[Rfam]
RNA sequence: GUUUUCGGGUAAUUACGGUUAGCUUGACUAGCUGAGGAAAGUCCAUGCUCUCACAAGCUGAGAGUGCUUGUAGUGUUCGUGCUUAGCGAAAAAAUAAGCUAAGGCAGAUGUGUUUCACAUUUGACGGCAGUUAAAACAGCUAAGGCUCUUAGGGCUAUGCUGGAGUAGACUUGAAAGUGCCACAGAGACGAAGCAAUAUUAGAAAUAAUAUUGGUGGAACGGGUAAACCCCACGAGAGAGCAACCCAAACAUAAGGUAGGGGCACUUUUUUCUAGGAAAUGAACGAAGAAAAGAGGCAGUCGUAAGAUUGCAGACAGAUUAUUACCGUUACUUUUUGAUCCUGAGAGAAAGUAAUACAGAACAUGGCUUAUAGAA
Numbered sequence: 001g002u003u004u005u006c007g008g009g010u011a012a013u014u015a016c017g018g019u020u021a022g023c024u025u026g027a028c029u030a031g032c033u034g035a036g037g038a039a040a041g042u043c044c045a046u047g048c049u050c051u052c053a054c055a056a057g058c059u060g061a062g063a064g065u066g067c068u069u070g071u072a073g074u075g076u077u078c079g080u081g082c083u084u085a086g087c088g089a090a091a092a093a094a095u096a097a098g099c100u101a102a103g104g105c106a107g108a109u110g111u112g113u114u115u116c117a118c119a120u121u122u123g124a125c126g127g128c129a130g131u132u133a134a135a136a137c138a139g140c141u142a143a144g145g146c147u148c149u150u151a152g153g154g155c156u157a158u159g160c161u162g163g164a165g166u167a168g169a170c171u172u173g174a175a176a177g178u179g180c181c182a183c184a185g186a187g188a189c190g191a192a193g194c195a196a197u198a199u200u201a202g203a204a205a206u207a208a209u210a211u212u213g214g215u216g217g218a219a220c221g222g223g224u225a226a227a228c229c230c231c232a233c234g235a236g237a238g239a240g241c242a243a244c245c246c247a248a249a250c251a252u253a254a255g256g257u258a259g260g261g262g263c264a265c266u267u268u269u270u271u272c273u274a275g276g277a278a279a280u281g282a283a284c285g286a287a288g289a290a291a292a293g294a295g296g297c298a299g300u301c302g303u304a305a306g307a308u309u310g311c312a313g314a315c316a317g318a319u320u321a322u323u324a325c326c327g328u329u330a331c332u333u334u335u336u337g338a339u340c341c342u343g344a345g346a347g348a349a350a351g352u353a354a355u356a357c358a359g360a361a362c363a364u365g366g367c368u369u370a371u372a373g374a375a
Stems, first nucleotide, its partner, number of pairs: 004375003007371001008326006016034006039369003043366005048240005053071006077235005082103006104125001105123006126230002129171004137162004144156005177228002179224003194213008244261003265295007296311006328354009